[Rfam]
RNA sequence: GUAAAUAUAGUUUAAACAAAACAUUAGAUUGUGAGUCUAAUAAUAGAAGCCCAAAGAUUUCUUAUUUACC
Numbered sequence: 001g002u003a004a005a006u007a008u009a010g011u012u013u014a015a016a017c018a019a020a021a022c023a024u025u026a027g028a029u030u031g032u033g034a035g036u037c038u039a040a041u042a043a044u045a046g047a048a049g050c051c052c053a054a055a056g057a058u059u060u061c062u063u064a065u066u067u068a069c070c
Stems, first nucleotide, its partner, number of pairs: 001069007010022004024040005045062005
Dot-bracket structure: (((((((..((((.....)))).(((((.......)))))....(((((........)))))))))))).

Shown here is a 70-nucleotide RNA sequence, a member of the family "tRNA". The base pairs follow the family's consensus structure, which is taken from published work. It is one of the family's seed sequences. It is annotated as a transfer RNA.